Bacterial small signal recognition particle RNA: a 97-nucleotide RNA sequence from Myxacorys almedinensis. Lineage of the source: Bacteria > Cyanobacteriota > Leptolyngbyaceae > Myxacorys > Myxacorys almedinensis. From the family's description: The signal recognition particle (SRP) is a universally conserved ribonucleoprotein involved in the co-translational targeting of proteins to membranes. A reference for the family is Rosenblad et al. (2003), "SRPDB: Signal Recognition Particle Database", Nucleic Acids Res. The family's RNA type in Rfam is non-coding RNA gene. A search with the family's covariance model found it, with a score of 57 bits.
RNA sequence: GACUCGGAUCUAUGCGAUCGCGACGCCCAAAUCUUGUCAGGACCGGAAGGUAGCAGCAAUACGGGAUGCUCACGGUAGGCGUAGUCUCCGGGUCACC
Numbered sequence: 001g002a003c004u005c006g007g008a009u010c011u012a013u014g015c016g017a018u019c020g021c022g023a024c025g026c027c028c029a030a031a032u033c034u035u036g037u038c039a040g041g042a043c044c045g046g047a048a049g050g051u052a053g054c055a056g057c058a059a060u061a062c063g064g065g066a067u068g069c070u071c072a073c074g075g076u077a078g079g080c081g082u083a084g085u086c087u088c089c090g091g092g093u094c095a096c097c
Stems, first nucleotide, its partner, number of pairs: 004091005010084005017076004022071001026065003034059004042051003